[Rfam]
RNA sequence: CUCUCGAUACACUCUAAGUAUGAACGCCAAGCGUACUUUUUAGUUUGGUGUUCUACCUUACAGUGAAUUGAGUG
Numbered sequence: 001c002u003c004u005c006g007a008u009a010c011a012c013u014c015u016a017a018g019u020a021u022g023a024a025c026g027c028c029a030a031g032c033g034u035a036c037u038u039u040u041u042a043g044u045u046u047g048g049u050g051u052u053c054u055a056c057c058u059u060a061c062a063g064u065g066a067a068u069u070g071a072g073u074g
Stems, first nucleotide, its partner, number of pairs: 006069003010065004015060003025050008
Rfam assigns this 74-nucleotide RNA from Pieris brassicae to the family "mir-971 microRNA precursor family". Rfam 15.1 lists 118 matches to the family in 116 species. The match comes from Rfam's covariance-model search (61 bits). Its family is annotated with miRNA-mediated post-transcriptional gene silencing and RISC complex in the Gene Ontology. The family's consensus secondary structure was predicted with RNAalifold. Taxonomically the source falls in Pieris (Eukaryota, Allotriocarida, Endopterygota, Panorpida).